[Rfam]
RNA: Vault RNA
Organism: Myripristis murdjan
RNA sequence: GCGCUGGUUUAGCUCAAUGGUUACAUCUUAUCAUUCAUUGCCAGAUAUCCAACUCCAACGGUCCGCGGGCCAGGAGUUCAAACCAUGGGCGCUGCCCAGCGCUUUU
Numbered sequence: 001g002c003g004c005u006g007g008u009u010u011a012g013c014u015c016a017a018u019g020g021u022u023a024c025a026u027c028u029u030a031u032c033a034u035u036c037a038u039u040g041c042c043a044g045a046u047a048u049c050c051a052a053c054u055c056c057a058a059c060g061g062u063c064c065g066c067g068g069g070c071c072a073g074g075a076g077u078u079c080a081a082a083c084c085a086u087g088g089g090c091g092c093u094g095c096c097c098a099g100c101g102c103u104u105u106u
Base pairs, nucleotide, nucleotide: 002101003100004099005098006097007096012090013089014088015087017086018085019084020083026075027074028073029072